[Rfam]
RNA sequence: GAGUCUAACGCGCGCGCGAGUCAGAGGGUCGAUAAAACCCCGUGGCGCAAUGAAAGUGAGGGCCGGCGCGCGCCGGCUGAGGUGGGAUCCCGGCCCCUCGGGGUCGGGCGCACCACCGGCCCGUCUCGCCCGCACCGUCGGGGAGGUGGAGCGUGAGCGCGUGCGAUAGGACCCGAAAGAUGGUGAACUAUGCCUGGGCAGGGCGAAGCCAGAGGAAACUCUGGUGGAGGCCCGUAGCGGUCCUGACGUGCAAAUCGGUCGUCCGACCUGGGUAUAGGGGCGAAAGACUAAUCGAACCAUCUAGUAGCUGGUU
Numbered sequence: 001g002a003g004u005c006u007a008a009c010g011c012g013c014g015c016g017c018g019a020g021u022c023a024g025a026g027g028g029u030c031g032a033u034a035a036a037a038c039c040c041c042g043u044g045g046c047g048c049a050a051u052g053a054a055a056g057u058g059a060g061g062g063c064c065g066g067c068g069c070g071c072g073c074c075g076g077c078u079g080a081g082g083u084g085g086g087a088u089c090c091c092g093g094c095c096c097c098u099c100g101g102g103g104u105c106g107g108g109c110g111c112a113c114c115a116c117c118g119g120c121c122c123g124u125c126u127c128g129c130c131c132g133c134a135c136c137g138u139c140g141g142g143g144a145g146g147u148g149g150a151g152c153g154u155g156a157g158c159g160c161g162u163g164c165g166a167u168a169g170g171a172c173c174c175g176a177a178a179g180a181u182g183g184u185g186a187a188c189u190a191u192g193c194c195u196g197g198g199c200a201g202g203g204c205g206a207a208g209c210c211a212g213a214g215g216a217a218a219c220u221c222u223g224g225u226g227g228a229g230g231c232c233c234g235u236a237g238c239g240g241u242c243c244u245g246a247c248g249u250g251c252a253a254a255u256c257g258g259u260c261g262u263c264c265g266a267c268c269u270g271g272g273u274a275u276a277g278g279g280g281c282g283a284a285a286g287a288c289u290a291a292u293c294g295a296a297c298c299a300u301c302u303a304g305u306a307g308c309u310g311g312u313u
Base pairs, nucleotide, nucleotide: 005169006168007167009165010164011163012162013161014160015159016158017157020046021045022044026040027039028038029037050057051056081117082116083115084114085113089108090107091106092105093104094103119152120151121149122148123147124146125145126144130140172311173310175308179301180300181299182298183297184296188277189276190275191274192273193272194271195270196269197268198267199265201233202232203231204230208225209224210223211222212221213220214219237262238261239260240259242258243257245256246255279289280288
The record is a 313-nucleotide part of an RNA from Perca fluviatilis, which matches "Eukaryotic large subunit ribosomal RNA" in Rfam. The match comes from Rfam's covariance-model search (2657 bits). Taxonomically the source falls in Perca (Eukaryota, Osteoglossocephalai, Euteleosteomorpha, Eurypterygia).